[Rfam]
RNA sequence: UUCUCUUGGUGGCACACUCGAUAAGACGCGGGUGGAAUUGCACAUGCUUAAAUAACAUAGCAAGAUUCUUGAAAGGCCCGCAGAACUGCGGGCCUUUCUUU
Numbered sequence: 001u002u003c004u005c006u007u008g009g010u011g012g013c014a015c016a017c018u019c020g021a022u023a024a025g026a027c028g029c030g031g032g033u034g035g036a037a038u039u040g041c042a043c044a045u046g047c048u049u050a051a052a053u054a055a056c057a058u059a060g061c062a063a064g065a066u067u068c069u070u071g072a073a074a075g076g077c078c079c080g081c082a083g084a085a086c087u088g089c090g091g092g093c094c095u096u097u098c099u100u101u
Stems, first nucleotide, its partner, number of pairs: 009041004015034006075094008
The family of this 101-nucleotide RNA sequence from Ruminobacter amylophilus is "Tryptophan operon leader". Pairs were carried over by alignment from the consensus structure, which is taken from published work. A reference for the family is Kolter and Yanofsky (1982), "Attenuation in amino acid biosynthetic operons", Annu Rev Genet. Its family is annotated with tryptophan biosynthetic process and transcriptional attenuation by ribosome in the Gene Ontology. NCBI's taxonomy places the organism under Bacteria, Pseudomonadati, Pseudomonadota, Succinivibrionaceae, Ruminobacter. Rfam describes the family as follows. At least 6 amino acid operons are known to be regulated by attenuation. In each a leader sequence of 150-200 bp is found upstream of the first gene in the operon. This leader sequence can assume two different secondary structures known as the terminator and the anti-terminator structure. Rfam classes the family as a cis-regulatory leader.